[Rfam]
Nucleotides: 125
Base pairs, nucleotide, nucleotide: 003085004084005083006082012067013066014065015064017062018061019060030056031055032054033053034052035051036050037049104125106124107123109121110120111119
Number, partner (000 for none) and nucleotide at each position: 001000u002000u003085u004084u005083a006082u007000u008000g009000c010000c011000u012067a013066u014065a015064g016000a017062a018061c019060u020000u021000a022000u023000a024000a025000c026000g027000a028000a029000c030056a031055u032054g033053g034052u035051u036050c037049u038000u039000g040000c041000c042000u043000u044000u045000u046000a047000c048000c049037a050036g051035a052034a053033c054032c055031a056030u057000c058000c059000g060019g061018g062017u063000g064015u065014u066013g067012u068000c069000u070000c071000c072000a073000a074000a075000g076000a077000a078000a079000c080000a081000g082006g083005u084004a085003a086000a087000g088000c089000u090000g091000u092000c093000c094000g095000u096000u097000a098000c099000u100000g101000u102000g103000a104125g105000c106124u107123u108000g109121c110120c111119a112000u113000a114000u115000u116000u117000u118000u119111u120110g121109g122000a123107a124106a125104u
U5 spliceosomal RNA: a 125-nucleotide RNA sequence from Saccharomyces mikatae. Rfam links the family to the GO terms U5 snRNP and spliceosomal tri-snRNP complex assembly. Pairs were carried over by alignment from the consensus structure, which is taken from published work. By type it is a spliceosomal small nuclear RNA. Rfam's curators put it in the seed alignment. Rfam describes the family as follows. U5 RNA is a component of both types of known spliceosome.